Shown here is a 133-nucleotide sequence from Cricetulus griseus, a member of the family "Small nucleolar RNA SNORA71". Rfam describes the family as follows. The members of this family belong to the H/ACA class of snoRNAs which bind a number of proteins (including dyskerin, Gar1p and Nop10p) to form snoRNP complexes. This class of snoRNAs are thought to guide the sites of modification of uridines to pseudouridines by forming direct base pairing interactions with substrate RNAs. This family includes U71 (SNORA71), ACA39 (SNORA39) and ACA60 (SNORA60). Rfam 15.1 lists 1,805 matches to the family in 606 species. On this family, see Ganot et al., Genes Dev 1997: "The family of box ACA small nucleolar RNAs is defined by an evolutionarily conserved secondary structure and ubiquitous sequence elements essential for RNA accumulation". Rfam classes the family as an H/ACA-box small nucleolar RNA. The organism belongs to Cricetulus, within Eukaryota.
[Rfam]
RNA sequence: CCCUGCAUUCGAAAGUGAUCUUGGCCACCAGUGUCCCAGUCAUUAGUAGUGUUGGGAAAGGAUGCUGAAAGAUGUGUUCCCUGAGUUUGGGGUCUUCUGUCCUGACCCCUCCAAAGCCUGGAACUUUCCUAUC
Numbered sequence: 001c002c003c004u005g006c007a008u009u010c011g012a013a014a015g016u017g018a019u020c021u022u023g024g025c026c027a028c029c030a031g032u033g034u035c036c037c038a039g040u041c042a043u044u045a046g047u048a049g050u051g052u053u054g055g056g057a058a059a060g061g062a063u064g065c066u067g068a069a070a071g072a073u074g075u076g077u078u079c080c081c082u083g084a085g086u087u088u089g090g091g092g093u094c095u096u097c098u099g100u101c102c103u104g105a106c107c108c109c110u111c112c113a114a115a116g117c118c119u120g121g122a123a124c125u126u127u128c129c130u131a132u133c
Stems, first nucleotide, its partner, number of pairs: 001056003005052005014044006023036002026033001064130001067128005086115004090110003